Shown here is a 291-nucleotide RNA sequence from Edaphochlamys debaryana, a member of the family "Plant signal recognition particle RNA". The family's RNA type in Rfam is non-coding RNA gene. Pairs were carried over by alignment from the consensus structure, which is taken from published work.

[Rfam]
RNA sequence: GCCGGGGGGUGUCGCGUCCCCUUGUCACCCGAGUGGGGGCUGGCGGUUCGGAGUGCUACGCGCUCUGGCCGUCCUGGUAUCUCUGCGUCGAUGGCGCGUCCUCUCUGAGUCUACAGUCGACAACGGCACUUGCCUGACGGCGGGUUGUCGUGGUUGAUGAUUAGCCCUGUACUGCGUGAGGCGGGAAACCGAGCAGCGAAAAGGGGCAGCUGCGGACGGCAGAAGGAUUGCGUGCCUGAGUGGAGUGUCAGGGCACCCGGCCAGUUGUGUGGGAGCCUGACAACCGUUUUG
Numbered sequence: 001g002c003c004g005g006g007g008g009g010u011g012u013c014g015c016g017u018c019c020c021c022u023u024g025u026c027a028c029c030c031g032a033g034u035g036g037g038g039g040c041u042g043g044c045g046g047u048u049c050g051g052a053g054u055g056c057u058a059c060g061c062g063c064u065c066u067g068g069c070c071g072u073c074c075u076g077g078u079a080u081c082u083c084u085g086c087g088u089c090g091a092u093g094g095c096g097c098g099u100c101c102u103c104u105c106u107g108a109g110u111c112u113a114c115a116g117u118c119g120a121c122a123a124c125g126g127c128a129c130u131u132g133c134c135u136g137a138c139g140g141c142g143g144g145u146u147g148u149c150g151u152g153g154u155u156g157a158u159g160a161u162u163a164g165c166c167c168u169g170u171a172c173u174g175c176g177u178g179a180g181g182c183g184g185g186a187a188a189c190c191g192a193g194c195a196g197c198g199a200a201a202a203g204g205g206g207c208a209g210c211u212g213c214g215g216a217c218g219g220c221a222g223a224a225g226g227a228u229u230g231c232g233u234g235c236c237u238g239a240g241u242g243g244a245g246u247g248u249c250a251g252g253g254c255a256c257c258c259g260g261c262c263a264g265u266u267g268u269g270u271g272g273g274a275g276c277c278u279g280a281c282a283a284c285c286g287u288u289u290u291g
Stems, first nucleotide, its partner, number of pairs: 001040003004023006028037003042288007052278002054275001056273001057271006065264006071254009081245003085241002093236007100226002104223004109217004114212004118156004123151006130144001131142004157162001164207005173200001175198003182191003